RNA sequence: GUGACAGAAGAGAGUGAGCACACAUGGUGUUUUCACGCAUCAUAUAUAUCUAUGCUUGAACCUAUGCGUGCUCACUGCUCUAUCUGUCAC
Numbered sequence: 001g002u003g004a005c006a007g008a009a010g011a012g013a014g015u016g017a018g019c020a021c022a023c024a025u026g027g028u029g030u031u032u033u034c035a036c037g038c039a040u041c042a043u044a045u046a047u048a049u050c051u052a053u054g055c056u057u058g059a060a061c062c063u064a065u066g067c068g069u070g071c072u073c074a075c076u077g078c079u080c081u082a083u084c085u086g087u088c089a090c
Stems, first nucleotide, its partner, number of pairs: 001090008010080003013076009023066003
RNA: mir-156 microRNA precursor family
Organism: Anisodus acutangulus